[Rfam]
RNA: mir-9198 microRNA precursor family
Organism: Cnephaeus nilssonii
RNA sequence: GCAGCCGCUCGCACCCGCUGCUGGCGCCUGGCGCCGGUCCUGAUCGCUCGGUGCUGUCAGCGGGUGCAAGCAGCAGCUG
Numbered sequence: 001g002c003a004g005c006c007g008c009u010c011g012c013a014c015c016c017g018c019u020g021c022u023g024g025c026g027c028c029u030g031g032c033g034c035c036g037g038u039c040c041u042g043a044u045c046g047c048u049c050g051g052u053g054c055u056g057u058c059a060g061c062g063g064g065u066g067c068a069a070g071c072a073g074c075a076g077c078u079g
Stems, first nucleotide, its partner, number of pairs: 004074002007071003011067010022056007